[Rfam]
RNA sequence: AGGAGCAACAGCCCCAGUGGCUGCGGCAGCUCUGGAGCCCUGGAUUCAGUCCCCGCAGGAACUCCAGAGCUCUCCGUCUGCAGGGCCUGGAGGCUCCGGGCGGGG
Dot-bracket structure: .(((((..((((((....(((.(.(..(((((((((..((((.............))))...)))))))))).).)))....))).)))...)))))........
RNA: mir-8834 microRNA precursor family